[Rfam]
RNA: Glutamine-II riboswitch aptamer
Organism: Synechococcus phage S-CBS2
RNA sequence: AAGCGUUCAGCCCCUUUUGGGGUCGCAGCACGAGUCACGCCAGGGAACGGGGACGUGAC
Numbered sequence: 001a002a003g004c005g006u007u008c009a010g011c012c013c014c015u016u017u018u019g020g021g022g023u024c025g026c027a028g029c030a031c032g033a034g035u036c037a038c039g040c041c042a043g044g045g046a047a048c049g050g051g052g053a054c055g056u057g058a059c
Base pairs, nucleotide, nucleotide: 004049005048006047007046008045010023011022012021013020014019034059035058036057037056038055039054040052041051